[Rfam]
This 65-nucleotide RNA from Streptococcus phage Javan577 belongs to the Rfam family "Bacilli-1 RNA". The family's RNA type in Rfam is small RNA. A search with the family's covariance model found it, with a score of 75 bits. The family's consensus secondary structure is taken from published work.
RNA sequence: AUCUGUGGCAACACAGACAUAUAAUCGAAGCACAUUAUAUGGCUUGGCAGAGCUUAAGAACUGUU
Numbered sequence: 001a002u003c004u005g006u007g008g009c010a011a012c013a014c015a016g017a018c019a020u021a022u023a024a025u026c027g028a029a030g031c032a033c034a035u036u037a038u039a040u041g042g043c044u045u046g047g048c049a050g051a052g053c054u055u056a057a058g059a060a061c062u063g064u065u
Stems, first nucleotide, its partner, number of pairs: 002017006018041007